Source information
The record is a 149-nucleotide RNA from Methylocella silvestris, which matches "caulobacter sRNA CC2171" in Rfam. By type it is a small RNA. Rfam's curators put it in the seed alignment. NCBI's taxonomy places the organism under Bacteria, Pseudomonadati, Pseudomonadota, Hyphomicrobiales, Methylocella silvestris. The literature on the family includes a 2008 paper in Mol Microbiol by Landt et al., "Small non-coding RNAs in Caulobacter crescentus".
RNA sequence: AACGUAUCGGAAGGAGGUGAUCCAGUGUCUCAUUGUCAUUUGCUGCGGGCCCGGACCUGGACUCGCGCCAGUGAGGUUUUCGCCUCCUAGGCGUCAGGUUCGCGGAAACGCGGUCCGACAAUGGAAGGGUCGUCCGGGAAGGGCGGCCC
Numbered sequence: 001a002a003c004g005u006a007u008c009g010g011a012a013g014g015a016g017g018u019g020a021u022c023c024a025g026u027g028u029c030u031c032a033u034u035g036u037c038a039u040u041u042g043c044u045g046c047g048g049g050c051c052c053g054g055a056c057c058u059g060g061a062c063u064c065g066c067g068c069c070a071g072u073g074a075g076g077u078u079u080u081c082g083c084c085u086c087c088u089a090g091g092c093g094u095c096a097g098g099u100u101c102g103c104g105g106a107a108a109c110g111c112g113g114u115c116c117g118a119c120a121a122u123g124g125a126a127g128g129g130u131c132g133u134c135c136g137g138g139a140a141g142g143g144c145g146g147c148c149c
Base pairs, nucleotide, nucleotide: 016023017022031123032122033121034120035119036118037117047057048056050054066093067092068091069090073086074085075084076083100113101112102111103110104109127149128148129147130146131145132144133143134142135141